RNA sequence: CUCCCGCCUACGUCGACGGGCGGAAAAGCCGGACACCUUCACCGGCCCGGCGGGGGCUCCUGACCGAGGG
Numbered sequence: 001c002u003c004c005c006g007c008c009u010a011c012g013u014c015g016a017c018g019g020g021c022g023g024a025a026a027a028g029c030c031g032g033a034c035a036c037c038u039u040c041a042c043c044g045g046c047c048c049g050g051c052g053g054g055g056g057c058u059c060c061u062g063a064c065c066g067a068g069g070g
Stems, first nucleotide, its partner, number of pairs: 001056008011022004028046005036070005
RNA: int-alpA RNA
Organism: Burkholderia sp. WAC0059